RNA sequence: UUGCGAUCCGCUAACCGGUCAAGCCGUGUCGCGGAAGGUUGAAUAACCCGCUGAACUCCGGCAUACCCGGAGAAAAGUGAGCG
Numbered sequence: 001u002u003g004c005g006a007u008c009c010g011c012u013a014a015c016c017g018g019u020c021a022a023g024c025c026g027u028g029u030c031g032c033g034g035a036a037g038g039u040u041g042a043a044u045a046a047c048c049c050g051c052u053g054a055a056c057u058c059c060g061g062c063a064u065a066c067c068c069g070g071a072g073a074a075a076a077g078u079g080a081g082c083g
Stems, first nucleotide, its partner, number of pairs: 002083003007035005016026004037048004049079004056072006
Dot-bracket structure: .(((..(((((....((((...))))....))))).((((....))))((((...((((((.....))))))...)))).)))
RNA: SucA RNA motif